The family of this 135-nucleotide RNA sequence from Blastococcus sp. DSM 46786 is "SAM riboswitch aptamer (S box leader)". The source organism's lineage runs through Bacteria, Actinomycetota, Geodermatophilales, Geodermatophilaceae and Blastococcus. Its Rfam clan is "SAM clan".

RNA sequence: CACUCAUCCAGAGGGGCAGAGGGACACGGCCCGAUGAAGCCCCGGCAACCGCCGCCUGCAGCGCUCCGCGCGACGGGCGGGAGGUGCCAAUUCCGUCCCGCGCGGCUCGACGGCCCGCAGCGGGGAAGAUGAGGA
Numbered sequence: 001c002a003c004u005c006a007u008c009c010a011g012a013g014g015g016g017c018a019g020a021g022g023g024a025c026a027c028g029g030c031c032c033g034a035u036g037a038a039g040c041c042c043c044g045g046c047a048a049c050c051g052c053c054g055c056c057u058g059c060a061g062c063g064c065u066c067c068g069c070g071c072g073a074c075g076g077g078c079g080g081g082a083g084g085u086g087c088c089a090a091u092u093c094c095g096u097c098c099c100g101c102g103c104g105g106c107u108c109g110a111c112g113g114c115c116c117g118c119a120g121c122g123g124g125g126a127a128g129a130u131g132a133g134g135a
Base pairs, nucleotide, nucleotide: 003133004132005131006130007129008128013043014042015041016040017039021032022031023030026096027095028094029093044088045087046086047085049084050083052080053079054078055077056076057075058074092127097124098123099122100121101120